[Rfam]
RNA sequence: UUGGUUAGAACACAGCCUAGCCGACGCCGCAAUGGCGCCUGGCAGGAAGACCGCGACGCCGGCAGCGGUCUCCGCGGCAGCCCCAUCGGCUGCACGACCCCGCCUCGGGGCCAACGGGACAUAACAGUCAAC
Numbered sequence: 001u002u003g004g005u006u007a008g009a010a011c012a013c014a015g016c017c018u019a020g021c022c023g024a025c026g027c028c029g030c031a032a033u034g035g036c037g038c039c040u041g042g043c044a045g046g047a048a049g050a051c052c053g054c055g056a057c058g059c060c061g062g063c064a065g066c067g068g069u070c071u072c073c074g075c076g077g078c079a080g081c082c083c084c085a086u087c088g089g090c091u092g093c094a095c096g097a098c099c100c101c102g103c104c105u106c107g108g109g110g111c112c113a114a115c116g117g118g119a120c121a122u123a124a125c126a127g128u129c130a131a132c
Stems, first nucleotide, its partner, number of pairs: 021041001023039001025037004048071007077093005096112001098110004
The family of this 132-nucleotide sequence from Pseudomonas mangiferae is "rmf RNA". The organism belongs to Pseudomonas, within Bacteria. By type it is a cis-regulatory element.